[Rfam]
Nucleotides: 068
Base pairs, nucleotide, nucleotide: 010025011024012023013022016059017058018057020055021054033049034048035047036046
Number, partner (000 for none) and nucleotide at each position: 001000a002000a003000g004000u005000a006000a007000a008000u009000a010025g011024g012023c013022g014000a015000u016059g017058g018057u019000g020055u021054u022013c023012g024011c025010c026000u027000u028000u029000a030000a031000a032000c033049g034048u035047u036046a037000a038000u039000c040000u041000u042000a043000a044000g045000a046036u047035a048034a049033c050000u051000a052000a053000u054021g055020a056000a057018g058017c059016c060000u061000a062000c063000u064000a065000a066000a067000a068000a